Nucleotides: 111
Base pairs, nucleotide, nucleotide: 001110002109003108004107005106006105007104010025011024012023013022027081028080029079030078031077087103088102089101090100091099
Number, partner (000 for none) and nucleotide at each position: 001110c002109c003108c004107u005106u006105g007104g008000u009000a010025g011024c012023u013022c014000a015000g016000u017000u018000g019000g020000a021000a022013g023012a024011g025010c026000g027081u028080g029079a030078g031077a032000c033000u034000g035000u036000a037000a038000u039000u040000g041000g042000c043000a044000a045000c046000a047000u048000u049000a050000c051000a052000u053000a054000a055000u056000g057000c058000a059000u060000u061000a062000c063000a064000a065000a066000u067000g068000c069000u070000u071000a072000u073000g074000u075000a076000a077031u078030c079029u080028c081027a082000a083000g084000g085000c086000c087103a088102c089101c090100g091099g092000u093000u094000c095000g096000a097000c098000c099091c100090c101089g102088g103087u104007u105006c106005g107004a108003g109002g110001g111000a
The family of this 111-nucleotide RNA sequence from Ceratobasidium theobromae is "tRNA". Pairs were carried over by alignment from the consensus structure, which is taken from published work. By type it is a transfer RNA. Rfam links the family to the GO term triplet codon-amino acid adaptor activity. A search with the family's covariance model found it, with a score of 50 bits.